Rfam assigns this 90-nucleotide RNA from Cephalotus follicularis to the family "Small nucleolar RNA snoR8a".
The organism belongs to Cephalotus, within Eukaryota.
The base pairs follow the family's consensus structure, which was predicted with WAR.
Rfam 15.1 lists 956 matches to the family in 245 species.
For this family Rfam cites "Multiple snoRNA gene clusters from Arabidopsis" (Brown et al., RNA, 2001).
A search with the family's covariance model found it, with a score of 102 bits.
Gene Ontology terms of the family: RNA processing and nucleolus.
By type it is a C/D-box small nucleolar RNA.

Nucleotides: 090
Base pairs, nucleotide, nucleotide: 003090004089006088007087
Number, partner (000 for none) and nucleotide at each position: 001000u002000u003090g004089g005000u006088u007087g008000c009000u010000a011000u012000g013000a014000u015000u016000a017000u018000a019000a020000g021000a022000a023000a024000a025000u026000u027000c028000c029000u030000c031000g032000u033000a034000c035000u036000g037000a038000a039000u040000g041000c042000u043000a044000u045000u046000g047000c048000c049000a050000u051000g052000g053000c054000a055000u056000g057000a058000u059000a060000g061000a062000c063000u064000c065000a066000u067000u068000u069000a070000c071000a072000c073000c074000c075000a076000u077000a078000g079000a080000a081000u082000a083000u084000g085000a086000g087007c088006a089004u090003c